[Rfam]
RNA sequence: GAACUAAACGUGGCCUUAUUCUGUAGCUACUUUGAGUUAUGAUAAUUAUUAUGUUAAUUUAUAAAAUUAUAGUAACUCCUUACUAAGUGGUUUACUAUAACGUUAUGAUAAAUAUUCUCAUGUGUUAUAGUAACCCAACUAUUGUAAAUAUGUAUUAAUAUUAUCGUAAAUUAAUAUAUAAAAUUAUCGUAAAUAAAGGUGACGAUAAAAUAACUUAUUUUGUAGCUG
Numbered sequence: 001g002a003a004c005u006a007a008a009c010g011u012g013g014c015c016u017u018a019u020u021c022u023g024u025a026g027c028u029a030c031u032u033u034g035a036g037u038u039a040u041g042a043u044a045a046u047u048a049u050u051a052u053g054u055u056a057a058u059u060u061a062u063a064a065a066a067u068u069a070u071a072g073u074a075a076c077u078c079c080u081u082a083c084u085a086a087g088u089g090g091u092u093u094a095c096u097a098u099a100a101c102g103u104u105a106u107g108a109u110a111a112a113u114a115u116u117c118u119c120a121u122g123u124g125u126u127a128u129a130g131u132a133a134c135c136c137a138a139c140u141a142u143u144g145u146a147a148a149u150a151u152g153u154a155u156u157a158a159u160a161u162u163a164u165c166g167u168a169a170a171u172u173a174a175u176a177u178a179u180a181a182a183a184u185u186a187u188c189g190u191a192a193a194u195a196a197a198g199g200u201g202a203c204g205a206u207a208a209a210a211u212a213a214c215u216u217a218u219u220u221u222g223u224a225g226c227u228g
Stems, first nucleotide, its partner, number of pairs: 002227001004225003008221001010219001013216001016213005022207003026203001028201006037192011050178013066164002069161003074155001080147004087142006093132011107117002

Shown here is a 228-nucleotide RNA from Miscanthus lutarioriparius, a member of the family "MIR6217 microRNA precursor family". Rfam 15.1 lists 2,266 matches to the family in 13 species. NCBI's taxonomy places the organism under Eukaryota, Streptophytina, Panicoideae, Andropogoneae, Miscanthus. The base pairs follow the family's consensus structure, which was predicted with RNAalifold.